The record is a 69-nucleotide RNA sequence from Carlito syrichta, which matches "Small nucleolar RNA SNORD73" in Rfam. Rfam links the family to the GO terms RNA processing and nucleolus. Rfam classes the family as a C/D-box small nucleolar RNA.
[Rfam]
RNA sequence: AAUAAGUGAUGAAAAAGUGUUUCGGUCCCAGCUGAUGUUCAGUGAUAACUGUUAUACUUUUCUGAUGUU
Number, nucleotide and partner (000 for none) at each position: 001a069002a068003u067004a066005a000006g000007u000008g000009a000010u000011g000012a000013a000014a000015a000016a000017g000018u000019g000020u000021u000022u000023c000024g000025g000026u000027c000028c000029c000030a000031g000032c000033u000034g000035a000036u000037g000038u000039u000040c000041a000042g000043u000044g000045a000046u000047a000048a000049c000050u000051g000052u000053u000054a000055u000056a000057c000058u000059u000060u000061u000062c000063u000064g000065a000066u004067g003068u002069u001